A member of the RNA family "Bacterial large subunit ribosomal RNA" from Nocardioides sp. Root79, 230 nucleotides of a longer RNA. The family's consensus secondary structure is taken from published work. NCBI's taxonomy places the organism under Bacteria, Bacillati, Propionibacteriales, Nocardioidaceae, Nocardioides.
RNA sequence: GAGUUUGCGUUGUGUGGCGAGGUUAACCCGUGUGGGGAAGCCGUAGCGAAAGCGAGUCCGAAUAGGGCGUUUGAGUCGCACGAUCAAGACCCGAAGCGGAGUGAUCUAUCCAUGGGCAGGUUGAAGCGCCGGUAAGACGGCGUGGAGGACCGAACCCACUUCAGUUGAAAAUGGAGGGGAUGACCUGUGGAUAGGGGUGAAAGGCCAAUCAAACUCCGUGAUAGCUGGUU
Dot-bracket structure: ....(((.((((((((((..((((..(((....)))..))))...((....))..((((.....))))......)))))))))))))..((.(...((((((...((((((((((((.((((...((((((......))))))....))))...(((.(((((........))))))))..).))))))))))).(((.....)))......))))))......).))..